[Rfam]
RNA sequence: AUAGAGAGAAGCUACUCUCUGUUCCCCAACCCCUCUAUCAGAUCAAGAUCCGAAAAAGCUUGGCGCUACCCCCGCCAAGUUUUU
Numbered sequence: 001a002u003a004g005a006g007a008g009a010a011g012c013u014a015c016u017c018u019c020u021g022u023u024c025c026c027c028a029a030c031c032c033c034u035c036u037a038u039c040a041g042a043u044c045a046a047g048a049u050c051c052g053a054a055a056a057a058g059c060u061u062g063g064c065g066c067u068a069c070c071c072c073c074g075c076c077a078a079g080u081u082u083u084u
Stems, first nucleotide, its partner, number of pairs: 001022008053084005059079007

The family of this 84-nucleotide RNA from Bacillus spizizenii is "FsrA".
The base pairs follow the family's consensus structure, which was predicted with WAR.
A reference for the family is Smaldone et al. (2012), "The FsrA sRNA and FbpB Protein Mediate the Iron-Dependent Induction of the Bacillus subtilis LutABC Iron-Sulfur-Containing Oxidases", J Bacteriol.
Gene Ontology term of the family: regulation of translation.